[Rfam]
Background
The record is a 90-nucleotide RNA sequence from Miscanthus lutarioriparius, which matches "mir-395 microRNA precursor family" in Rfam. A search with the family's covariance model found it, with a score of 76 bits. The source organism's lineage runs through Eukaryota, Streptophyta, Tracheophyta, Poales and Miscanthus. Rfam describes the family as follows. mir-395 was identified in both Arabidopsis thaliana and Oryza sativa computationally and was later experimentally verified. mir-395 is thought to target mRNAs coding for ATP sulphurylases. The mature sequence is excised from the 3' arm of the hairpin.
RNA sequence: GUGUUAUCAAGAGUUCCCUUCAAGCACUUCGCAUUGGCGGAUGUAGUCUUGAGACCAAUGCGAAGUGUUUGGAGGAACUCUUGAUGCCAA
Dot-bracket structure: ....(((((.(((((((.((.(((((((((((((((...................))))))))))))))))).))))))).)))))....